[Rfam]
Description: The record is an 85-nucleotide sequence from Hevea brasiliensis, which matches "MIR473 microRNA precursor family" in Rfam. The family has 6 seed sequences and 189 matches in Rfam 15.1. Taxonomically the source falls in Hevea (Eukaryota, Spermatophyta, Malpighiales, Micrandreae). A reference for the family is Pantaleo et al. (2010), "Identification of grapevine microRNAs and their targets using high-throughput sequencing and degradome analysis", Plant J. The match comes from Rfam's covariance-model search (64 bits).

RNA sequence: AUUGCUCACUCUCCCUCAAGGGCUUCCAGCAGUGCCGGACACAUGCAUGGCAAGGCUGGAGGUCAUUGGGGAGAGUGGACAAUAU
Numbered sequence: 001a002u003u004g005c006u007c008a009c010u011c012u013c014c015c016u017c018a019a020g021g022g023c024u025u026c027c028a029g030c031a032g033u034g035c036c037g038g039a040c041a042c043a044u045g046c047a048u049g050g051c052a053a054g055g056c057u058g059g060a061g062g063u064c065a066u067u068g069g070g071g072a073g074a075g076u077g078g079a080c081a082a083u084a085u
Stems, first nucleotide, its partner, number of pairs: 006078010017068003021064008